This 218-nucleotide RNA sequence from Rhodovulum sp. PH10 belongs to the Rfam family "Group II catalytic intron D1-D4-6". Group II introns are found in rRNA, tRNA and mRNA of organelles in fungi, plants and protists, and also in mRNA in bacteria. Pairs were carried over by alignment from the consensus structure.
Nucleotides: 218
Stems, first nucleotide, its partner, number of pairs: 012036004019031004025184002040088002044085004048080002050075005056069005110209006129203006135160003140155003165197006172190004
Number, partner (000 for none) and nucleotide at each position: 001000c002000g003000a004000c005000u006000c007000c008000c009000u010000c011000c012036c013035g014034g015033u016000a017000g018000a019031g020030g021029c022028g023000c024000a025184g026183c027000c028022c029021g030020c031019c032000a033015g034014c035013c036012g037000g038000a039000a040088g041087c042000g043000a044085g045084c046083c047082u048080u049079g050075c051074a052073u053072g054071g055000g056069c057068g058067g059066c060065g061000g062000c063000g064000a065060c066059g067058c068057c069056g070000g071054u072053c073052g074051u075050g076000a077000a078000g079049c080048g081000u082047a083046g084045g085044c086000a087041g088040c089000a090000g091000g092000c093000a094000u095000c096000g097000a098000a099000g100000c101000c102000g103000u104000g105000g106000g107000u108000c109000a110209g111208c112207c113206c114205c115204g116000a117000a118000a119000u120000c121000a122000u123000g124000a125000u126000g127000a128000c129203g130202u131201c132200g133199a134198a135160g136159c137158c138000u139000u140155c141154g142153g143000a144000g145000u146000g147000u148000u149000g150000g151000g152000a153142c154141c155140g156000g157000g158137g159136g160135c161000a162000g163000c164000a165197u166196c167195g168194g169193c170192a171000a172190g173189g174188c175187c176000g177000a178000u179000a180000g181000u182000g183026g184025c185000g186000a187175g188174g189173c190172c191000g192170u193169g194168u195167c196166g197165g198134u199133u200132c201131g202130a203129c204115c205114g206113g207112g208111g209110u210000c211000u212000c213000g214000g215000a216000a217000c218000a